[Rfam]
RNA sequence: GGUGCUAUGAUGAGAUAAAAACACCAAGGAAGUGUUUUAUGGGCAGUGGUUUCGCCGUGAGCCUUAUUUCAAAACGACUUCUCCUUCCACUGAGCACU
Numbered sequence: 001g002g003u004g005c006u007a008u009g010a011u012g013a014g015a016u017a018a019a020a021a022c023a024c025c026a027a028g029g030a031a032g033u034g035u036u037u038u039a040u041g042g043g044c045a046g047u048g049g050u051u052u053c054g055c056c057g058u059g060a061g062c063c064u065u066a067u068u069u070c071a072a073a074a075c076g077a078c079u080u081c082u083c084c085u086u087c088c089a090c091u092g093a094g095c096a097c098u
Base pairs, nucleotide, nucleotide: 001098002097003096004095005094
This 98-nucleotide sequence from Lathyrus oleraceus belongs to the Rfam family "Small nucleolar RNA Z152/R70/R12/".
The literature on the family includes a 2001 paper in J Mol Biol by Barneche et al., "Identification of 66 box C/D snoRNAs in Arabidopsis thaliana: extensive gene duplications generated multiple isoforms predicting new ribosomal RNA 2'-O-methylation sites".
Rfam 15.1 lists 604 matches to the family in 220 species.
NCBI's taxonomy places the organism under Eukaryota, Tracheophyta, Euphyllophyta, Fabales, Lathyrus.